[Rfam]
RNA sequence: CAGUGAAAGAAUGAUGAUCAAAUCUUUUUUCCCCAGCUUAUCGACCAUGGUGAUACUAUGCUGAACUUAUCAAGCCAAUUUGUCUGACUUUCACUG
Numbered sequence: 001c002a003g004u005g006a007a008a009g010a011a012u013g014a015u016g017a018u019c020a021a022a023u024c025u026u027u028u029u030u031c032c033c034c035a036g037c038u039u040a041u042c043g044a045c046c047a048u049g050g051u052g053a054u055a056c057u058a059u060g061c062u063g064a065a066c067u068u069a070u071c072a073a074g075c076c077a078a079u080u081u082g083u084c085u086g087a088c089u090u091u092c093a094c095u096g
Base pairs, nucleotide, nucleotide: 001096002095003094004093005092006091007090008089009088
A member of the RNA family "Small nucleolar SNORD12/SNORD106" from Nematostella vectensis, 96 nucleotides long.
The family has 8 seed sequences and 2,264 matches in Rfam 15.1.
The organism belongs to Nematostella, within Eukaryota.
It scores 52 bits against the family's covariance model.
Its family is annotated with RNA processing and nucleolus in the Gene Ontology.
The family is grouped with related families in Rfam's "SNORD12 clan".
The base pairs follow the family's consensus structure, which was predicted with RNAalifold.
On this family, see Huttenhofer et al., EMBO J 2001: "RNomics: an experimental approach that identifies 201 candidates for novel, small, non-messenger RNAs in mouse".